[Rfam]
The family of this 98-nucleotide RNA sequence from Eubacterium sp. AF36-5BH is "Purine riboswitch aptamer".
The match comes from Rfam's covariance-model search (53 bits).
RNA sequence: UUUGCUAUUAUGUCAUAGGAUUAUAUAAGUUCAUAAUACGGUUGAACGUUUCUACUAACUGCCUCAAAUAGUUUGCUAUAAUCUCUUUAUUAGUGUAA
Numbered sequence: 001u002u003u004g005c006u007a008u009u010a011u012g013u014c015a016u017a018g019g020a021u022u023a024u025a026u027a028a029g030u031u032c033a034u035a036a037u038a039c040g041g042u043u044g045a046a047c048g049u050u051u052c053u054a055c056u057a058a059c060u061g062c063c064u065c066a067a068a069u070a071g072u073u074u075g076c077u078a079u080a081a082u083c084u085c086u087u088u089a090u091u092a093g094u095g096u097a098a
Stems, first nucleotide, its partner, number of pairs: 018084008029047005057073005